Shown here is a 106-nucleotide sequence from Flavobacterium dankookense, a member of the family "Flavo-1 RNA". A search with the family's covariance model found it, with a score of 74 bits. The base pairs follow the family's consensus structure, which is taken from published work.
RNA sequence: AAUUAGCCCCGAUUGAAGUGGAAAUCCUGUCAUUGCUUUUUAGCAAAUGUAAUGAGAUUGCUUCGUACCUAGCAAUGACAGAUUGUAACGAAAAGCGGGAAAAUGG
Numbered sequence: 001a002a003u004u005a006g007c008c009c010c011g012a013u014u015g016a017a018g019u020g021g022a023a024a025u026c027c028u029g030u031c032a033u034u035g036c037u038u039u040u041u042a043g044c045a046a047a048u049g050u051a052a053u054g055a056g057a058u059u060g061c062u063u064c065g066u067a068c069c070u071a072g073c074a075a076u077g078a079c080a081g082a083u084u085g086u087a088a089c090g091a092a093a094a095g096c097g098g099g100a101a102a103a104u105g106g
Stems, first nucleotide, its partner, number of pairs: 009098003013094002018089002023084004029079008